RNA sequence: AUCCAAGUGCAAGGGCGUUUUCCUUCUCCGUGAAGCGAUAAGCUGAGAGAGGAAUUUUGCUAGUUGAAAACUAUACACUGACCGCUCCUCAUUGGGUUCGCCUGGUGAGGGAAUUUUUGUAAUCUUCUUCCUCUGGAAU
Dot-bracket structure: ...................(((((.(((.....(((.....)))..))))))))...............................(((((((((((....)))))))))))............................
U4 spliceosomal RNA: a 139-nucleotide RNA sequence from Ilyonectria sp. MPI-CAGE-AT-0026.
The organism belongs to Ilyonectria, within Eukaryota.
The base pairs follow the family's consensus structure, which is taken from published work.